[Rfam]
Yersinia sRNA 155(RyfD): a 137-nucleotide sequence from Candidatus Fukatsuia symbiotica. By type it is a small RNA. Pairs were carried over by alignment from the consensus structure. From the family's description: The sRNA was identified by and is confirmed to have a stable secondary structure by using genome-wide structure probing at different temperatures.
RNA sequence: GAACAGGCUCUAUAAAGCAUAAUCAAUAACUCGGAAUAUACUCUAAGAUAACCUUGAAAAUUUGAGGGAUGACCUUACUUUAUUUCUAGUAUAAAUUCCAACCGAUGAGGAAGUAUUAUGCAUCCGGAUCGUCUUAC
Number, nucleotide and partner (000 for none) at each position: 001g000002a135003a134004c000005a132006g000007g130008c000009u128010c127011u126012a000013u000014a000015a123016a000017g121018c120019a119020u000021a117022a116023u115024c000025a042026a000027u040028a000029a039030c000031u038032c000033g000034g000035a000036a000037u000038a031039u029040a027041c000042u025043c000044u000045a000046a000047g000048a000049u000050a000051a000052c067053c066054u065055u064056g063057a062058a000059a000060a000061u000062u057063u056064g055065a054066g053067g052068g079069a000070u077071g076072a000073c000074c000075u000076u071077a070078c000079u068080u000081u000082a114083u113084u112085u111086c110087u109088a000089g000090u107091a106092u000093a000094a000095a000096u000097u000098c000099c000100a000101a000102c000103c000104g000105a000106u091107g090108a000109g087110g086111a085112a084113g083114u082115a023116u022117u021118a000119u019120g018121c017122a000123u015124c000125c000126g011127g010128a009129u000130c007131g000132u005133c000134u003135u002136a000137c000